Shown here is a 106-nucleotide RNA sequence from Sporomusa termitida, a member of the family "SAM riboswitch aptamer (S box leader)". The match comes from Rfam's covariance-model search (81 bits). The organism belongs to Sporomusa, within Bacteria. From the family's description: The SAM riboswitch is found upstream of a number of genes which code for proteins involved in methionine or cysteine biosynthesis in Gram-positive bacteria.
[Rfam]
RNA sequence: UACUCAUCAAGAGCUGGCUGAGGGAAUGGCCCUAUGACGCCGCGGCAACCAUCGCGCAGGUGAAACGGUGCCAAUUCCAACAGGAUUAACUCCUGACAGAUGAAGA
Numbered sequence: 001u002a003c004u005c006a007u008c009a010a011g012a013g014c015u016g017g018c019u020g021a022g023g024g025a026a027u028g029g030c031c032c033u034a035u036g037a038c039g040c041c042g043c044g045g046c047a048a049c050c051a052u053c054g055c056g057c058a059g060g061u062g063a064a065a066c067g068g069u070g071c072c073a074a075u076u077c078c079a080a081c082a083g084g085a086u087u088a089a090c091u092c093c094u095g096a097c098a099g100a101u102g103a104a105g106a
Stems, first nucleotide, its partner, number of pairs: 001106001004103005013043001015042004022032003027079003044072004049068002052063003076098001081095005